The family of this 103-nucleotide RNA sequence is "TPP riboswitch aptamer (THI element)". Gene Ontology term of the family: thiamine pyrophosphate binding. A search with the family's covariance model found it, with a score of 69 bits.
[Rfam]
RNA sequence: CAUCGGCACCAGGGGUGCUUACUUGCAAUCAAGUGGGCUGAGAUGAGACCCUUUGAACCUGAACAGGAUAAUGCCUGCGAAGGGAGAGUGCCUUCUUGGUUUU
Numbered sequence: 001c002a003u004c005g006g007c008a009c010c011a012g013g014g015g016u017g018c019u020u021a022c023u024u025g026c027a028a029u030c031a032a033g034u035g036g037g038c039u040g041a042g043a044u045g046a047g048a049c050c051c052u053u054u055g056a057a058c059c060u061g062a063a064c065a066g067g068a069u070a071a072u073g074c075c076u077g078c079g080a081a082g083g084g085a086g087a088g089u090g091c092c093u094u095c096u097u098g099g100u101u102u103u
Stems, first nucleotide, its partner, number of pairs: 006091004011052004016046001017038008058083003064077004